[Rfam]
RNA sequence: CAUAUGAUUAGAGGUUGCGUGAAUCAUGAGUCACCUUGAGGACAGCCCACAGCUGGAUGAGCCAAGGUAAAAGGGAUGAGCGCCGAAGUGAGACCCGAGUGGAAGGGGAUUGCUGGGCCAGGCAUGAAUAAUGACUGGACUGUCGCAGGAAUGCGGAGCGCUAACAUGACG
Numbered sequence: 001c002a003u004a005u006g007a008u009u010a011g012a013g014g015u016u017g018c019g020u021g022a023a024u025c026a027u028g029a030g031u032c033a034c035c036u037u038g039a040g041g042a043c044a045g046c047c048c049a050c051a052g053c054u055g056g057a058u059g060a061g062c063c064a065a066g067g068u069a070a071a072a073g074g075g076a077u078g079a080g081c082g083c084c085g086a087a088g089u090g091a092g093a094c095c096c097g098a099g100u101g102g103a104a105g106g107g108g109a110u111u112g113c114u115g116g117g118c119c120a121g122g123c124a125u126g127a128a129u130a131a132u133g134a135c136u137g138g139a140c141u142g143u144c145g146c147a148g149g150a151a152u153g154c155g156g157a158g159c160g161c162u163a164a165c166a167u168g169a170c171g
Base pairs, nucleotide, nucleotide: 008164009163010162011161017083018082019081020080023077024076025075033068034067035066036065037064038063087114088113089112090111091110094107095106096105115141116140118138119137120136121135123133124132125131143156144155145154146153147152
RNA: Lysine riboswitch aptamer
Organism: Lacticaseibacillus saniviri